[Rfam]
RNA sequence: CUCUUGCUAUGAUGAAUCAUGAAAAAAUUCACAUGUCAGACUUCAGAGAUUUUAUGUAAAAUCUAUGAGAAUAAAUAUUCAUGUUUUCUGAGCAGUUU
Dot-bracket structure: ...((((........................................((((........))))............................))))...
Small nucleolar RNA R64/Z200 family: a 98-nucleotide RNA sequence from Camellia sinensis. Rfam classes the family as a C/D-box small nucleolar RNA. The base pairs follow the family's consensus structure, which was predicted with PFOLD. On this family, see Marker et al., Curr Biol 2002: "Experimental RNomics: identification of 140 candidates for small non-messenger RNAs in the plant Arabidopsis thaliana". The family has 14 seed sequences and 748 matches in Rfam 15.1.